[Rfam]
RNA sequence: UUUGGGAUAUGAUGACAAAAAUACGAAAUCUCUAAGGCUAAUUGCUAUGCAGAUGAAAUGUAUUUGCACGUCAGUCUGAUCCCAUU
Numbered sequence: 001u002u003u004g005g006g007a008u009a010u011g012a013u014g015a016c017a018a019a020a021a022u023a024c025g026a027a028a029u030c031u032c033u034a035a036g037g038c039u040a041a042u043u044g045c046u047a048u049g050c051a052g053a054u055g056a057a058a059u060g061u062a063u064u065u066g067c068a069c070g071u072c073a074g075u076c077u078g079a080u081c082c083c084a085u086u
Stems, first nucleotide, its partner, number of pairs: 003084005
Description:
A member of the RNA family "Small nucleolar RNA Z122" from Arabidopsis lyrata, 86 nucleotides long. Its family is annotated with RNA processing and nucleolus in the Gene Ontology. It scores 75 bits against the family's covariance model. The family's consensus secondary structure was predicted with PFOLD. NCBI's taxonomy places the organism under Eukaryota, Streptophyta, Tracheophyta, eudicotyledons, Arabidopsis lyrata. By type it is a C/D-box small nucleolar RNA. Rfam 15.1 lists 822 matches to the family in 247 species.